[Rfam]
This 152-nucleotide RNA sequence from Lactococcus fujiensis belongs to the Rfam family "PyrR binding site". Rfam 15.1 lists 1,498 matches to the family in 930 species. The organism belongs to Lactococcus fujiensis, within Bacteria. From the family's description: This family represents the PyrR binding site and terminator structure.
RNA sequence: AAAACCUUUAAAUGAGUCCAGUGAGGCUUGCAAGGAACCGGAAAAUGAAAAUUACUAGAACGAGAGUCAAUCAUAGCUUGUAGAGUGGUUGACAGGUAUUCUAAUAUCAAUUUUUUGUGCACUUGCAGACUUUCUGUAAGUGCAUUUUUAUU
Number, nucleotide and partner (000 for none) at each position: 001a000002a000003a000004a000005c035006c034007u033008u032009u000010a000011a000012a000013u030014g029015a028016g027017u026018c025019c000020a000021g000022u000023g000024a000025g018026g017027c016028u015029u014030g013031c000032a008033a007034g006035g005036a000037a000038c000039c000040g000041g000042a000043a000044a112045a111046u110047g000048a000049a107050a000051a105052u104053u103054a102055c000056u000057a000058g000059a000060a000061c000062g000063a000064g000065a000066g000067u000068c000069a000070a000071u000072c000073a000074u000075a000076g000077c000078u000079u000080g000081u000082a000083g000084a000085g000086u000087g000088g000089u000090u000091g000092a000093c000094a000095g000096g000097u000098a000099u000100u000101c000102u054103a053104a052105u051106a000107u049108c000109a000110a046111u045112u044113u000114u000115u000116u000117g145118u144119g143120c142121a141122c140123u139124u138125g137126c136127a135128g134129a000130c000131u000132u000133u000134c128135u127136g126137u125138a124139a123140g122141u121142g120143c119144a118145u117146u000147u000148u000149u000150a000151u000152u000